Nucleotides: 075
Stems, first nucleotide, its partner, number of pairs: 006070008015061003025051008
Number, partner (000 for none) and nucleotide at each position: 001000u002000g003000u004000u005000g006070g007069g008068u009067u010066c011065a012064c013063u014000c015061u016060a017059a018000g019000u020000a021000u022000g023000a024000a025051c026050g027049c028048c029047a030046a031045g032044c033000a034000u035000u036000u037000c038000c039000c040000u041000u042000c043000a044032g045031u046030u047029u048028g049027g050026u051025g052000u053000u054000c055000u056000a057000c058000c059017u060016u061015a062000c063013a064012g065011u066010g067009a068008a069007c070006u071000g072000a073000g074000c075000u
Rfam assigns this 75-nucleotide RNA from Diatraea saccharalis to the family "mir-971 microRNA precursor family".
Its family is annotated with miRNA-mediated post-transcriptional gene silencing and RISC complex in the Gene Ontology.